[Rfam]
RNA sequence: GGAUGUGAGGGCGAUCUGGCUGCGACAUCUGUCACCCCAUUGAUCGCUAGGGUUGAUUCGGCUGAUCUGGCUGGCUAGGCGGGUGUCCCCUUCCUCCCUCACCGCUCCAUGUGCGUCCCUCCCGAAGCUGUGCGCUCGGUCGAAGAGGAUGGCUGUCCCCGAUAGAGAAGCACCGAACUCCGUUCAAGAGUAUACGAGUAGCUGCGCUCCCCUGCUAGAACCUCCAAACAAGCUUCAAGUACGUAGGGUAGUCAAGCUCCAAAUCUUCAAGCACAUCCAAGUGUGGCGCUGCACGUGGCAGUCUGCCUUCCUUU
Numbered sequence: 001g002g003a004u005g006u007g008a009g010g011g012c013g014a015u016c017u018g019g020c021u022g023c024g025a026c027a028u029c030u031g032u033c034a035c036c037c038c039a040u041u042g043a044u045c046g047c048u049a050g051g052g053u054u055g056a057u058u059c060g061g062c063u064g065a066u067c068u069g070g071c072u073g074g075c076u077a078g079g080c081g082g083g084u085g086u087c088c089c090c091u092u093c094c095u096c097c098c099u100c101a102c103c104g105c106u107c108c109a110u111g112u113g114c115g116u117c118c119c120u121c122c123c124g125a126a127g128c129u130g131u132g133c134g135c136u137c138g139g140u141c142g143a144a145g146a147g148g149a150u151g152g153c154u155g156u157c158c159c160c161g162a163u164a165g166a167g168a169a170g171c172a173c174c175g176a177a178c179u180c181c182g183u184u185c186a187a188g189a190g191u192a193u194a195c196g197a198g199u200a201g202c203u204g205c206g207c208u209c210c211c212c213u214g215c216u217a218g219a220a221c222c223u224c225c226a227a228a229c230a231a232g233c234u235u236c237a238a239g240u241a242c243g244u245a246g247g248g249u250a251g252u253c254a255a256g257c258u259c260c261a262a263a264u265c266u267u268c269a270a271g272c273a274c275a276u277c278c279a280a281g282u283g284u285g286g287c288g289c290u291g292c293a294c295g296u297g298g299c300a301g302u303c304u305g306c307c308u309u310c311c312u313u314u
Stems, first nucleotide, its partner, number of pairs: 001108003005102007013093002018090002024087010035074002037070003042067004046062003117170001119167003122139004127135002140162003147158003201257003207251002210248006222239002230235001279314003283309001285307003288302005
RNA: 7SK RNA